Notes:
Rfam assigns this 508-nucleotide RNA sequence from Lentzea aerocolonigenes to the family "Saccharopolyspora sRNA 350". The family's consensus secondary structure was predicted with RNAfold. It scores 224 bits against the family's covariance model. By type it is an antisense RNA.
RNA sequence: UUGGCGGUGUACUCCCACUCGCCCUGCGGCCCGGCCAGGACGGUCUCGCCGAAGUACUCGCCGUCGGCCAGGUUGCCGAGCACGGUUUCCCCGCCGUACUCGCCGGUGCCGAUCUUGUCGACCUUGCCGUGCGCGAUCAGCACGACGGUGUCCUUCGGACGACCCUUCUCGACGAUGAGGUCGCCGAUGCCGAACUCCUGCUGCUGGAAGCGGCCGGAGAGCGCGGCGAGCACGGCCUCGUCGUCGAAGCCCUUGAGCAGCGACAGCUCGGUCAGCUCGGCGGGCACGACGCGGAUCUCCGCGCCGAUGUUGGUGAACGAGACGCGGCCAUCGCCCAACGUGUAGGUGAGCCGGCGGUUGACGCGGUACGCACCACCCGCGGCCUGGACCCAGGGCAGCACCUUGAGCAGCCAGCGGGAAGUGAUUCCCUGCAUCUGCGGGACGGACUUGGUGGUAGUGGCCAGAUUACGUGCGGCGGCCGUGCCCAAACUCAGCUGCUGACGGCCCU
Numbered sequence: 001u002u003g004g005c006g007g008u009g010u011a012c013u014c015c016c017a018c019u020c021g022c023c024c025u026g027c028g029g030c031c032c033g034g035c036c037a038g039g040a041c042g043g044u045c046u047c048g049c050c051g052a053a054g055u056a057c058u059c060g061c062c063g064u065c066g067g068c069c070a071g072g073u074u075g076c077c078g079a080g081c082a083c084g085g086u087u088u089c090c091c092c093g094c095c096g097u098a099c100u101c102g103c104c105g106g107u108g109c110c111g112a113u114c115u116u117g118u119c120g121a122c123c124u125u126g127c128c129g130u131g132c133g134c135g136a137u138c139a140g141c142a143c144g145a146c147g148g149u150g151u152c153c154u155u156c157g158g159a160c161g162a163c164c165c166u167u168c169u170c171g172a173c174g175a176u177g178a179g180g181u182c183g184c185c186g187a188u189g190c191c192g193a194a195c196u197c198c199u200g201c202u203g204c205u206g207g208a209a210g211c212g213g214c215c216g217g218a219g220a221g222c223g224c225g226g227c228g229a230g231c232a233c234g235g236c237c238u239c240g241u242c243g244u245c246g247a248a249g250c251c252c253u254u255g256a257g258c259a260g261c262g263a264c265a266g267c268u269c270g271g272u273c274a275g276c277u278c279g280g281c282g283g284g285c286a287c288g289a290c291g292c293g294g295a296u297c298u299c300c301g302c303g304c305c306g307a308u309g310u311u312g313g314u315g316a317a318c319g320a321g322a323c324g325c326g327g328c329c330a331u332c333g334c335c336c337a338a339c340g341u342g343u344a345g346g347u348g349a350g351c352c353g354g355c356g357g358u359u360g361a362c363g364c365g366g367u368a369c370g371c372a373c374c375a376c377c378c379g380c381g382g383c384c385u386g387g388a389c390c391c392a393g394g395g396c397a398g399c400a401c402c403u404u405g406a407g408c409a410g411c412c413a414g415c416g417g418g419a420a421g422u423g424a425u426u427c428c429c430u431g432c433a434u435c436u437g438c439g440g441g442a443c444g445g446a447c448u449u450g451g452u453g454g455u456a457g458u459g460g461c462c463a464g465a466u467u468a469c470g471u472g473c474g475g476c477g478g479c480c481g482u483g484c485c486c487a488a489a490c491u492c493a494g495c496u497g498c499u500g501a502c503g504g505c506c507c508u
Stems, first nucleotide, its partner, number of pairs: 006390003010386002014382002019327001021325002025321001027319002031315001035313004040308001047303003051299002054233002057230008065111004075103001077102004082097005117222002122217002127212001130209001132206001133204003140197001144195001149192002155187004160183001165174001167172001234296001236294002240290005250282001252280002256277003261270002329342003351379001353377002356374002362370002391431005397425001399423003403418002407415001437476002440473001442471003446467001448464005477508002480503003486497002